This 87-nucleotide sequence from Aegilops tauschii belongs to the Rfam family "MIR1120/MIR1122 microRNA precursor family". Rfam 15.1 lists 44,765 matches to the family in 8 species. The match comes from Rfam's covariance-model search (90 bits).
RNA sequence: UUACUCCCUGCGUCUCAUAAUAUAAGAACGUUUUUGACACUACACUAGUGUAAGAAACGUUCUUAUAUUAUGGGACGGAGGGAGUAG
Dot-bracket structure: ..(((.(((.(.(((((.(((((((((((((((((.(((((.....))))).))))))))))))))))).))))).).))).)))..
NCBI's taxonomy places the organism under Eukaryota, Streptophyta, Tracheophyta, Poales, Aegilops tauschii.